[Rfam]
Annotation: A member of the RNA family "Trypanosomatid snoRNA TB9Cs1H1" from Trypanosoma rangeli, 63 nucleotides long. The source organism's lineage runs through Eukaryota, Discoba, Euglenozoa, Kinetoplastea and Herpetosoma. Rfam classes the family as an H/ACA-box small nucleolar RNA. Its family is annotated with RNA processing and nucleolus in the Gene Ontology.
RNA sequence: AGCACAGCAGAAGAAGCCGGCCGUGGCAGACCAGUUCCCCGUCGGCGCCGACACUGUGCGAGA
Dot-bracket structure: .((((((........(((((.....................))))).......))))))....
Numbered sequence: 001a002g003c004a005c006a007g008c009a010g011a012a013g014a015a016g017c018c019g020g021c022c023g024u025g026g027c028a029g030a031c032c033a034g035u036u037c038c039c040c041g042u043c044g045g046c047g048c049c050g051a052c053a054c055u056g057u058g059c060g061a062g063a
Stems, first nucleotide, its partner, number of pairs: 002059006016046005
It scores 61 bits against the family's covariance model.